[Rfam]
RNA sequence: UCGUGCUAAGCGGGGGGGUGGCGGUCCCCUGAACCCGAAAUCCGCCAAAGCGGGGCUGAAAUCCCCCCUUGAGGCUGCAAGUGGCCGGAACUGCCGCAGUCAGCGGUGUUGAGGGCUGGGUCCUGAGCGGCGAGAGCCCGUGAACGGGUCAGGCCCGGAAGGGAGCAGCCAUAAGCGGUCACUCUCGGGUGCCUCAGGGGAGCCUGGCCUGAGCCGUCUGACUGUGUGUAAGCCGGUGCGCUGCAGUCGAGAGGGGGGUGCACGA
Numbered sequence: 001u002c003g004u005g006c007u008a009a010g011c012g013g014g015g016g017g018g019u020g021g022c023g024g025u026c027c028c029c030u031g032a033a034c035c036c037g038a039a040a041u042c043c044g045c046c047a048a049a050g051c052g053g054g055g056c057u058g059a060a061a062u063c064c065c066c067c068c069u070u071g072a073g074g075c076u077g078c079a080a081g082u083g084g085c086c087g088g089a090a091c092u093g094c095c096g097c098a099g100u101c102a103g104c105g106g107u108g109u110u111g112a113g114g115g116c117u118g119g120g121u122c123c124u125g126a127g128c129g130g131c132g133a134g135a136g137c138c139c140g141u142g143a144a145c146g147g148g149u150c151a152g153g154c155c156c157g158g159a160a161g162g163g164a165g166c167a168g169c170c171a172u173a174a175g176c177g178g179u180c181a182c183u184c185u186c187g188g189g190u191g192c193c194u195c196a197g198g199g200g201a202g203c204c205u206g207g208c209c210u211g212a213g214c215c216g217u218c219u220g221a222c223u224g225u226g227u228g229u230a231a232g233c234c235g236g237u238g239c240g241c242u243g244c245a246g247u248c249g250a251g252a253g254g255g256g257g258g259u260g261c262a263c264g265a
Base pairs, nucleotide, nucleotide: 001265002264003263004262005261006260009057010056011055012030013029014028015027016026017025019023034054035053036052037051063258064257065256066255067254068253069252073248074247075246076245077244080242081241082240083239084237085236086235087234088233092230093229095226096225097224098223099222100221103218105215106214107213113210114209115208116207117206118205119204120203121202122198123197124196125195126194127193128189131187132186133185134184135183136180138178139177140176141175147170148169149168154163155162156161
Shown here is a 265-nucleotide RNA sequence from Ardenticatena maritima, a member of the family "Bacterial large signal recognition particle RNA".
Rfam's curators write: The signal recognition particle (SRP) is a universally conserved ribonucleoprotein involved in the co-translational targeting of proteins to membranes.
The match comes from Rfam's covariance-model search (181 bits).
Gene Ontology terms of the family: signal recognition particle, plasma membrane targeting and SRP-dependent cotranslational protein targeting to membrane, signal sequence recognition.
The family's RNA type in Rfam is non-coding RNA gene.
Pairs were carried over by alignment from the consensus structure, which is taken from published work.